This 75-nucleotide RNA sequence from Caenorhabditis brenneri belongs to the Rfam family "HDV ribozyme from F. prausnitzii". Its family is annotated with catalytic activity in the Gene Ontology. Rfam 15.1 lists 3,803 matches to the family in 91 species.
RNA sequence: CUUCUUCGACGGUACUAACCUCUACGCGGUGAAGAAGAGACAACAGUUUCUGAUGAAACUGGCUAAUAAGUACCA
Dot-bracket structure: (((((((..........(((.......))))))))))......(((((((....)))))))..............
Numbered sequence: 001c002u003u004c005u006u007c008g009a010c011g012g013u014a015c016u017a018a019c020c021u022c023u024a025c026g027c028g029g030u031g032a033a034g035a036a037g038a039g040a041c042a043a044c045a046g047u048u049u050c051u052g053a054u055g056a057a058a059c060u061g062g063c064u065a066a067u068a069a070g071u072a073c074c075a
Stems, first nucleotide, its partner, number of pairs: 001037007018030003044061007